Rfam assigns this 110-nucleotide RNA sequence from Rhodobacteraceae bacterium PARR1 to the family "Guanidine-I riboswitch aptamer".

RNA sequence: UGAGUUGGCGGCUAGGGUUCCGGCACCACGCGGUGCGUCUGGUCCGAGAGUCGUCACCGGCGGGGCCGUAUCACCCGCUUGGCGCACGGCGGGACAAAAGCCCGGGAGAC
Numbered sequence: 001u002g003a004g005u006u007g008g009c010g011g012c013u014a015g016g017g018u019u020c021c022g023g024c025a026c027c028a029c030g031c032g033g034u035g036c037g038u039c040u041g042g043u044c045c046g047a048g049a050g051u052c053g054u055c056a057c058c059g060g061c062g063g064g065g066c067c068g069u070a071u072c073a074c075c076c077g078c079u080u081g082g083c084g085c086a087c088g089g090c091g092g093g094a095c096a097a098a099a100g101c102c103c104g105g106g107a108g109a110c
Stems, first nucleotide, its partner, number of pairs: 007055006015045002020042002022039001023036005057082003060078004085105001087108001091103003

About this RNA: About the family: This family represents a conserved RNA structure found upstream of the ykkC and yxkD genes in Bacillus subtilis and related genes in other bacteria. The function of this family is unclear although it has been suggested that it may function to switch on efflux pumps and detoxification systems in response to harmful environmental molecules. The match comes from Rfam's covariance-model search (80 bits). On this family, see Barrick et al., Proc Natl Acad Sci U S A 2004: "New RNA motifs suggest an expanded scope for riboswitches in bacterial genetic control". The organism belongs to Paracoccaceae, within Bacteria.